[Rfam]
RNA: Fluoride riboswitch aptamer (crcB RNA motif)
RNA sequence: UCAAAAUUCGGCAAUGAGGUCUGCCUUAAACCGUUCUACUAGGGACUAAUGACAUCUACUUUUAA
Numbered sequence: 001u002c003a004a005a006a007u008u009c010g011g012c013a014a015u016g017a018g019g020u021c022u023g024c025c026u027u028a029a030a031c032c033g034u035u036c037u038a039c040u041a042g043g044g045a046c047u048a049a050u051g052a053c054a055u056c057u058a059c060u061u062u063u064a065a
Base pairs, nucleotide, nucleotide: 010025011024012023013022016056017055019053020052021051033046034045035044036043